[Rfam]
RNA sequence: UAAAUUUGAAUAUGCUUACCGUAGACAGUAGGUGCUUUCGGGCUUAAUUUCCUACCGAGGUGUGUGAUAGAAUUUCAGCUCUGCUGAUUCGUCAAGCCUUCGUACUUCUGCGGAGGCUUUUCUUAUUGCAUA
Numbered sequence: 001u002a003a004a005u006u007u008g009a010a011u012a013u014g015c016u017u018a019c020c021g022u023a024g025a026c027a028g029u030a031g032g033u034g035c036u037u038u039c040g041g042g043c044u045u046a047a048u049u050u051c052c053u054a055c056c057g058a059g060g061u062g063u064g065u066g067a068u069a070g071a072a073u074u075u076c077a078g079c080u081c082u083g084c085u086g087a088u089u090c091g092u093c094a095a096g097c098c099u100u101c102g103u104a105c106u107u108c109u110g111c112g113g114a115g116g117c118u119u120u121u122c123u124u125a126u127u128g129c130a131u132a
Stems, first nucleotide, its partner, number of pairs: 028055005034043003096117009
RNA: Ribosomal protein L10 leader